[Rfam]
RNA sequence: UCCAUCGUGAGGUGGAAUCUGAAGGAAGCAAAUGGCAAAGCAAGGCGAUGACGCACAGAAACUGGAUAGUUAGGCUGUUGUGACUUGGACAACUUGGCAUUAAACAAAUACCCCAAAUCCUCGACCGGAAGUGCACAACAGUAGAUCUAACGUCGCCGUGUGAAAGAAUCGUGU
Numbered sequence: 001u002c003c004a005u006c007g008u009g010a011g012g013u014g015g016a017a018u019c020u021g022a023a024g025g026a027a028g029c030a031a032a033u034g035g036c037a038a039a040g041c042a043a044g045g046c047g048a049u050g051a052c053g054c055a056c057a058g059a060a061a062c063u064g065g066a067u068a069g070u071u072a073g074g075c076u077g078u079u080g081u082g083a084c085u086u087g088g089a090c091a092a093c094u095u096g097g098c099a100u101u102a103a104a105c106a107a108a109u110a111c112c113c114c115a116a117a118u119c120c121u122c123g124a125c126c127g128g129a130a131g132u133g134c135a136c137a138a139c140a141g142u143a144g145a146u147c148u149a150a151c152g153u154c155g156c157c158g159u160g161u162g163a164a165a166g167a168a169u170c171g172u173g174u
Stems, first nucleotide, its partner, number of pairs: 001016006028174003036166001040161003044157007063149005074142003078138005083132002086115003094107003

Source information
Rfam assigns this 174-nucleotide RNA sequence from Marinibactrum halimedae to the family "Group II catalytic intron D1-D4-3". The match comes from Rfam's covariance-model search (100 bits). Group II introns are found in rRNA, tRNA and mRNA of organelles in fungi, plants and protists, and also in mRNA in bacteria. The source organism's lineage runs through Bacteria, Pseudomonadota, Gammaproteobacteria, Cellvibrionaceae and Marinibactrum. Pairs were carried over by alignment from the consensus structure.